[Rfam]
Description:
mir-5014 microRNA precursor family: a 120-nucleotide sequence from Arabidopsis thaliana. A search with the family's covariance model found it, with a score of 101 bits. Lineage of the source: Eukaryota > Embryophyta > Pentapetalae > Brassicaceae > Arabidopsis. Rfam links the family to the GO terms RISC complex and miRNA-mediated post-transcriptional gene silencing.
RNA sequence: UUUGAUUCGUACACUUAGAUUGUACACCACUUUUAGUGUACAAAUGUAAAGUGUACUCUGUGUAUUUUUAUAUACAUUUGUACACUAAAAGUAGUGUACGGUAUAAGUGUACGAAUCAAA
Numbered sequence: 001u002u003u004g005a006u007u008c009g010u011a012c013a014c015u016u017a018g019a020u021u022g023u024a025c026a027c028c029a030c031u032u033u034u035a036g037u038g039u040a041c042a043a044a045u046g047u048a049a050a051g052u053g054u055a056c057u058c059u060g061u062g063u064a065u066u067u068u069u070a071u072a073u074a075c076a077u078u079u080g081u082a083c084a085c086u087a088a089a090a091g092u093a094g095u096g097u098a099c100g101g102u103a104u105a106a107g108u109g110u111a112c113g114a115a116u117c118a119a120a
Stems, first nucleotide, its partner, number of pairs: 001120017019102009029092017049069002053065004